Background: This 80-nucleotide RNA from Branchiostoma floridae belongs to the Rfam family "mir-2060 microRNA precursor family". Taxonomically the source falls in Branchiostoma (Eukaryota, Metazoa, Cephalochordata, Leptocardii). A search with the family's covariance model found it, with a score of 69 bits. Pairs were carried over by alignment from the consensus structure, which was predicted with RNAalifold.

[Rfam]
RNA sequence: CUGUGUAUGGAUGGUGUUCAGCACCAAGGACAGGUGUGUGUGUGGAUGGUGUUCAGCACCAGGGACAGGUAUGUUUGUGU
Numbered sequence: 001c002u003g004u005g006u007a008u009g010g011a012u013g014g015u016g017u018u019c020a021g022c023a024c025c026a027a028g029g030a031c032a033g034g035u036g037u038g039u040g041u042g043u044g045g046a047u048g049g050u051g052u053u054c055a056g057c058a059c060c061a062g063g064g065a066c067a068g069g070u071a072u073g074u075u076u077g078u079g080u
Stems, first nucleotide, its partner, number of pairs: 001068004012061007020053007028041001030039003